This 114-nucleotide sequence from Branchiostoma lanceolatum belongs to the Rfam family "mraW RNA".
RNA sequence: GGAUCCCGUAUCCGCCGUGCCUCUGUGUCCGCUAUAGACCCUGUGUCCGCUUCCCCAGCGGCGGACACAGGGUCUAUAGCGGACACAGAGGCACGGCAGAUACGUCGCGCCCCC
Numbered sequence: 001g002g003a004u005c006c007c008g009u010a011u012c013c014g015c016c017g018u019g020c021c022u023c024u025g026u027g028u029c030c031g032c033u034a035u036a037g038a039c040c041c042u043g044u045g046u047c048c049g050c051u052u053c054c055c056c057a058g059c060g061g062c063g064g065a066c067a068c069a070g071g072g073u074c075u076a077u078a079g080c081g082g083a084c085a086c087a088g089a090g091g092c093a094c095g096g097c098a099g100a101u102a103c104g105u106c107g108c109g110c111c112c113c114c
Base pairs, nucleotide, nucleotide: 010101011100012099014097015096016095018093019092021090022089023088024087025086026085027084028083029082030081031080032079033078034077035076036075037074038073039072040071041070042069043068044067045066046065047064048063049062050061051060
Dot-bracket structure: .........(((.(((.((.(((((((((((((((((((((((((((((((........))))))))))))))))))))))))))))))).)).))).))).............